[Rfam]
The record is a 91-nucleotide RNA sequence from Leptidea sinapis, which matches "mir-2788 microRNA precursor family" in Rfam. Gene Ontology terms of the family: miRNA-mediated post-transcriptional gene silencing and RISC complex.
RNA sequence: UCAGUAUGCCGCCGUAUAGCUGGGGUUUCCCAGUGGCAAGUGCCUCUAAUAUGCAAUGCCCUAGGAAAUCCCAAACGUACUGGUGACAACC
Numbered sequence: 001u002c003a004g005u006a007u008g009c010c011g012c013c014g015u016a017u018a019g020c021u022g023g024g025g026u027u028u029c030c031c032a033g034u035g036g037c038a039a040g041u042g043c044c045u046c047u048a049a050u051a052u053g054c055a056a057u058g059c060c061c062u063a064g065g066a067a068a069u070c071c072c073a074a075a076c077g078u079a080c081u082g083g084u085g086a087c088a089a090c091c
Stems, first nucleotide, its partner, number of pairs: 008087001010085004014080003021073009032062002035060004041055003